[Rfam]
This 138-nucleotide sequence from Candidatus Korobacter versatilis belongs to the Rfam family "Molybdenum/Tungsten riboswitch aptamer (Moco RNA motif)". Lineage of the source: Bacteria > Acidobacteriota > Terriglobia > Candidatus Korobacteraceae > Candidatus Korobacter versatilis.
RNA sequence: CUAGGAACGUGUUUCCGACGUUCGCUGCCUACGGAAUACUAAGGCAUCGGGCGCGGUAUCCAUCUUUGUAGAUGGAUCGAGGGUGACGAAGGAAACUUCGCCGCCUCCCGUUUGGAAAGGAAGCACCUCGGCGCAUGC
Numbered sequence: 001c002u003a004g005g006a007a008c009g010u011g012u013u014u015c016c017g018a019c020g021u022u023c024g025c026u027g028c029c030u031a032c033g034g035a036a037u038a039c040u041a042a043g044g045c046a047u048c049g050g051g052c053g054c055g056g057u058a059u060c061c062a063u064c065u066u067u068g069u070a071g072a073u074g075g076a077u078c079g080a081g082g083g084u085g086a087c088g089a090a091g092g093a094a095a096c097u098u099c100g101c102c103g104c105c106u107c108c109c110g111u112u113u114g115g116a117a118a119g120g121a122a123g124c125a126c127c128u129c130g131g132c133g134c135a136u137g138c
Stems, first nucleotide, its partner, number of pairs: 011124006019053006026046004033040002055078003059074001081106005087100005107115002
Dot-bracket structure: ..........((((((..((((((.((((...((....))..)))).)))))).(((.(..............).)))..(((((.(((((....))))).)))))((.....))...))))))..............

The family has 160 seed sequences and 1,248 matches in Rfam 15.1. Rfam links the family to the GO terms regulation of gene expression, molybdenum ion binding and tungstate binding.